Notes
This 138-nucleotide sequence from Mus musculus belongs to the Rfam family "Small nucleolar RNA SNORA17". A reference for the family is Ofengand and Bakin (1997), "Mapping to nucleotide resolution of pseudouridine residues in large subunit ribosomal RNAs from representative eukaryotes, prokaryotes, archaebacteria, mitochondria and chloroplasts", J Mol Biol. It scores 68 bits against the family's covariance model. Its family is annotated with nucleolus and RNA processing in the Gene Ontology. The family is grouped with related families in Rfam's "SNORA17 clan". Pairs were carried over by alignment from the consensus structure, which was predicted with RNAalifold. By type it is an H/ACA-box small nucleolar RNA. snoRNA ACA 17 belongs to the H/ACA family of snoRNAs and is predicted to guide pseudouridylation of the 28S rRNA at positions U4659 and U4598. It shares the same host gene together with ACA43. NB This family has a high threshold value to exclude a large number of closely related sequences that do not appear to have conserved H and ACA boxes, and may be pseudogenes.
RNA sequence: CCUGCCUCCCAGAUACAUUGCAGGUGUGCCUUUUGUGUCAUAUGAGUGUCAGUAGGAAGCAGAGAAGAGAGAGACUAUUUCUAUGCUCAACUCAAUAUCCUGACCUAUGAUCAUCUGAAUGAUUAGUAGCCUAACAUU
Dot-bracket structure: .((((.(((.(...((...((...((((.(......).))))...))))...).)).)))))......(..((.((((.....((......(((.(...(........)...)..))).))....)))).))..)...